[Rfam]
RNA sequence: GGUCCCUAUGAUGAACUUGACAAGUAAUUAAAAGUAGUGGACUGAUGAUACUCGUUGAUGACAACUUUAUUCUGAGGGAUU
Numbered sequence: 001g002g003u004c005c006c007u008a009u010g011a012u013g014a015a016c017u018u019g020a021c022a023a024g025u026a027a028u029u030a031a032a033a034g035u036a037g038u039g040g041a042c043u044g045a046u047g048a049u050a051c052u053c054g055u056u057g058a059u060g061a062c063a064a065c066u067u068u069a070u071u072c073u074g075a076g077g078g079a080u081u
Stems, first nucleotide, its partner, number of pairs: 001081006
Dot-bracket structure: ((((((.....................................................................))))))
Small nucleolar RNA R21: an 81-nucleotide sequence from Coffea canephora. A search with the family's covariance model found it, with a score of 56 bits. It is annotated as a C/D-box small nucleolar RNA.